[Rfam]
This 53-nucleotide RNA belongs to the Rfam family "chrB-b RNA".

RNA sequence: CCGGGUCACUCGCAGGCACCCGGUCCAUAAAGACGCUUCGUCUCAAGCACUGC
Numbered sequence: 001c002c003g004g005g006u007c008a009c010u011c012g013c014a015g016g017c018a019c020c021c022g023g024u025c026c027a028u029a030a031a032g033a034c035g036c037u038u039c040g041u042c043u044c045a046a047g048c049a050c051u052g053c
Base pairs, nucleotide, nucleotide: 001023002022003021004020005019006018012053013052014051015050031043032042033041034040035039

The base pairs follow the family's consensus structure, which is taken from published work.